[Rfam]
RNA sequence: UGUUGUGGUGGUUUCUUUCUGGCACAUUUGUUAAGUUUCAAAUGGGCCUGACUCUGCCACAUACAUUAUAUAGGAACUAACCAAGGCUUGAAGACAGAUUGUCUUUAGCAUUUUCCCACAUCAGAGAUUGGAUCCCACAUGU
Numbered sequence: 001u002g003u004u005g006u007g008g009u010g011g012u013u014u015c016u017u018u019c020u021g022g023c024a025c026a027u028u029u030g031u032u033a034a035g036u037u038u039c040a041a042a043u044g045g046g047c048c049u050g051a052c053u054c055u056g057c058c059a060c061a062u063a064c065a066u067u068a069u070a071u072a073g074g075a076a077c078u079a080a081c082c083a084a085g086g087c088u089u090g091a092a093g094a095c096a097g098a099u100u101g102u103c104u105u106u107a108g109c110a111u112u113u114u115c116c117c118a119c120a121u122c123a124g125a126g127a128u129u130g131g132a133u134c135c136c137a138c139a140u141g142u
Stems, first nucleotide, its partner, number of pairs: 005060007021048003025044006073135003077131002079088001081086001100127001102125003
Small nucleolar RNA SNORA12: a 142-nucleotide RNA from Dipodomys ordii. Taxonomically the source falls in Dipodomys (Eukaryota, Amniota, Eutheria, Castorimorpha). The family's RNA type in Rfam is H/ACA-box small nucleolar RNA. A search with the family's covariance model found it, with a score of 125 bits. The base pairs follow the family's consensus structure, which was predicted with RNAalifold. Gene Ontology terms of the family: nucleolus and RNA processing.